mir-981 microRNA precursor family: an 82-nucleotide sequence from Armadillidium nasatum. The family's consensus secondary structure was predicted with RNAalifold. On this family, see Legeai et al., BMC Genomics 2010: "Bioinformatic prediction, deep sequencing of microRNAs and expression analysis during phenotypic plasticity in the pea aphid, Acyrthosiphon pisum".
RNA sequence: GUUGUGCAUUUCGGGUUUCGCGAUCAUACGAACGCUUAUUAUUAACGUCGUUCGUUGUCGUCGAAACCUGCAUUGACACAAC
Numbered sequence: 001g002u003u004g005u006g007c008a009u010u011u012c013g014g015g016u017u018u019c020g021c022g023a024u025c026a027u028a029c030g031a032a033c034g035c036u037u038a039u040u041a042u043u044a045a046c047g048u049c050g051u052u053c054g055u056u057g058u059c060g061u062c063g064a065a066a067c068c069u070g071c072a073u074u075g076a077c078a079c080a081a082c
Stems, first nucleotide, its partner, number of pairs: 001082006012070009030053005